RNA sequence: CAAGAUAACUCUAGCUAAGGAACUCUGCAAAAUGGCCCCGUAACUUCGGGAGAAGGGGUACCUAUGUUAUGUGAAGGAAGAAACGUCCGGAGCAGAAGUAGGUCGCAGUGAAGAGUCCCAAGCAACUGUUUACCAAAAACACAGGUCUAUGCUAAGCUGAAAGGCGACGUAUAUGGGCUGACACCUGCCCAGUGCUGGAAGGUUAAGAGGAGGAUUGAGAGAUUCGAAUUGAAGCCCCAGUGAACGGCGGCCGUAACUAUAACGGUCCUAAGGUAGCGAAAUUCCUUGUCGGGUAAGUUCCGACCUGCACGAAUGGUGAAAUGAUUUGGGAGCUGUCUUGGCUGGAGACUUG
Numbered sequence: 001c002a003a004g005a006u007a008a009c010u011c012u013a014g015c016u017a018a019g020g021a022a023c024u025c026u027g028c029a030a031a032a033u034g035g036c037c038c039c040g041u042a043a044c045u046u047c048g049g050g051a052g053a054a055g056g057g058g059u060a061c062c063u064a065u066g067u068u069a070u071g072u073g074a075a076g077g078a079a080g081a082a083a084c085g086u087c088c089g090g091a092g093c094a095g096a097a098g099u100a101g102g103u104c105g106c107a108g109u110g111a112a113g114a115g116u117c118c119c120a121a122g123c124a125a126c127u128g129u130u131u132a133c134c135a136a137a138a139a140c141a142c143a144g145g146u147c148u149a150u151g152c153u154a155a156g157c158u159g160a161a162a163g164g165c166g167a168c169g170u171a172u173a174u175g176g177g178c179u180g181a182c183a184c185c186u187g188c189c190c191a192g193u194g195c196u197g198g199a200a201g202g203u204u205a206a207g208a209g210g211a212g213g214a215u216u217g218a219g220a221g222a223u224u225c226g227a228a229u230u231g232a233a234g235c236c237c238c239a240g241u242g243a244a245c246g247g248c249g250g251c252c253g254u255a256a257c258u259a260u261a262a263c264g265g266u267c268c269u270a271a272g273g274u275a276g277c278g279a280a281a282u283u284c285c286u287u288g289u290c291g292g293g294u295a296a297g298u299u300c301c302g303a304c305c306u307g308c309a310c311g312a313a314u315g316g317u318g319a320a321a322u323g324a325u326u327u328g329g330g331a332g333c334u335g336u337c338u339u340g341g342c343u344g345g346a347g348a349c350u351u352g
Stems, first nucleotide, its partner, number of pairs: 001352004009347008018338003035059005044049001060103006104108001116331007123323002127141003144179008152169001156165003182318004187248003192245002194241005201236003207230002212225005249267006268272001278305001288304006